[Rfam]
RNA sequence: ACCAUUGUUGCGGUUAAAAAGCUCGUAGUUGGAUCUACGCGAUGCGAGGUGGUUCGUUCUUUGGACGUUCACUGCCUCGUGUCGCUCUCUGUUGUCGGUUUUCGGCAGGUGCUCUUUACGGGGUGCUUGUCGUGACUGACGAGUUUACUUUGAAUUAAUUGGAGUGCUUAAAACAGGCGUUUCGCUUGAACAGUCUAGCAUGGAAUAAUGGAAUAGGACUUCGGUUCGAUUUUAUUGGUUUUAUGGAUCGAAGUAAUGAUUAGUAGGAACAAACGGGGGCAUUCGUAUUGUAGCGUUAGAGGUGAAAUUCUAGGAUCGCUGCAAGACGGUCGACUGCGAAAGCAUUUGCCAAGAAUGUUUUCAUUAAUCAAGAACGAAAGUUAGGGGUUCGAAGGCGAUCAGAUACCGCCCUAGUCCUAACCCUAAACUCUGCCAACUACCGAUCCGUCGAUGGUAAUUUAGCCUUGAUGGGGAGGUAAUCGGAAACGAAAGUCUUCCGGUUCCGGGGGAAGUAUGGUUGCAAAGCUGAAACUUAAAGAAAU
Numbered sequence: 001a002c003c004a005u006u007g008u009u010g011c012g013g014u015u016a017a018a019a020a021g022c023u024c025g026u027a028g029u030u031g032g033a034u035c036u037a038c039g040c041g042a043u044g045c046g047a048g049g050u051g052g053u054u055c056g057u058u059c060u061u062u063g064g065a066c067g068u069u070c071a072c073u074g075c076c077u078c079g080u081g082u083c084g085c086u087c088u089c090u091g092u093u094g095u096c097g098g099u100u101u102u103c104g105g106c107a108g109g110u111g112c113u114c115u116u117u118a119c120g121g122g123g124u125g126c127u128u129g130u131c132g133u134g135a136c137u138g139a140c141g142a143g144u145u146u147a148c149u150u151u152g153a154a155u156u157a158a159u160u161g162g163a164g165u166g167c168u169u170a171a172a173a174c175a176g177g178c179g180u181u182u183c184g185c186u187u188g189a190a191c192a193g194u195c196u197a198g199c200a201u202g203g204a205a206u207a208a209u210g211g212a213a214u215a216g217g218a219c220u221u222c223g224g225u226u227c228g229a230u231u232u233u234a235u236u237g238g239u240u241u242u243a244u245g246g247a248u249c250g251a252a253g254u255a256a257u258g259a260u261u262a263g264u265a266g267g268a269a270c271a272a273a274c275g276g277g278g279g280c281a282u283u284c285g286u287a288u289u290g291u292a293g294c295g296u297u298a299g300a301g302g303u304g305a306a307a308u309u310c311u312a313g314g315a316u317c318g319c320u321g322c323a324a325g326a327c328g329g330u331c332g333a334c335u336g337c338g339a340a341a342g343c344a345u346u347u348g349c350c351a352a353g354a355a356u357g358u359u360u361u362c363a364u365u366a367a368u369c370a371a372g373a374a375c376g377a378a379a380g381u382u383a384g385g386g387g388u389u390c391g392a393a394g395g396c397g398a399u400c401a402g403a404u405a406c407c408g409c410c411c412u413a414g415u416c417c418u419a420a421c422c423c424u425a426a427a428c429u430c431u432g433c434c435a436a437c438u439a440c441c442g443a444u445c446c447g448u449c450g451a452u453g454g455u456a457a458u459u460u461a462g463c464c465u466u467g468a469u470g471g472g473g474a475g476g477u478a479a480u481c482g483g484a485a486a487c488g489a490a491a492g493u494c495u496u497c498c499g500g501u502u503c504c505g506g507g508g509g510a511a512g513u514a515u516g517g518u519u520g521c522a523a524a525g526c527u528g529a530a531a532c533u534u535a536a537a538g539a540a541a542u
Stems, first nucleotide, its partner, number of pairs: 011505003019502001021375001023373002028368003266362004270357002274353001278350004284328002288324008299310003336343002380421006390414001394410004432501003436493002439477003444472008453464003481488002507534003516527004